Rfam assigns this 137-nucleotide RNA sequence from Salvelinus namaycush to the family "Small nucleolar RNA SNORA13". By type it is an H/ACA-box small nucleolar RNA. The family's consensus secondary structure was predicted with CMfinder. Rfam's curators write: ACA13 is a member of the H/ACA class of snoRNA that guide the sites of modification of uridines to pseudouridines. Taxonomically the source falls in Salvelinus (Eukaryota, Opisthokonta, Deuterostomia, Craniata).
[Rfam]
RNA sequence: UGCCUUUAUGUGUUGCCCAUUCAUUGUCUCCAGAGUGAAUGAGGUGUCAACCAAGGCAUACAGUAACCUUGUUGGUUGUCUUUUGUUUGGAAGGAGUCUCCACUGAUUCCUUUCAAUAACUAACUGCAAGAACACAC
Number, nucleotide and partner (000 for none) at each position: 001u000002g057003c056004c055005u054006u053007u000008a000009u000010g000011u049012g048013u000014u046015g045016c044017c043018c041019a040020u039021u038022c037023a036024u035025u034026g000027u000028c000029u000030c000031c000032a000033g000034a025035g024036u023037g022038a021039a020040u019041g018042a000043g017044g016045u015046g014047u000048c012049a011050a000051c000052c000053a006054a005055g004056g003057c002058a000059u000060a000061c000062a000063g000064u000065a000066a000067c000068c130069u129070u128071g127072u000073u000074g000075g124076u123077u122078g121079u000080c000081u000082u000083u000084u119085g000086u000087u116088u115089g114090g112091a111092a000093g000094g000095a000096g107097u106098c000099u000100c000101c000102a000103c000104u000105g000106a097107u096108u000109c000110c000111u091112u090113u000114c089115a088116a087117u000118a000119a084120c000121u078122a077123a076124c075125u000126g000127c071128a070129a069130g068131a000132a000133c000134a000135c000136a000137c000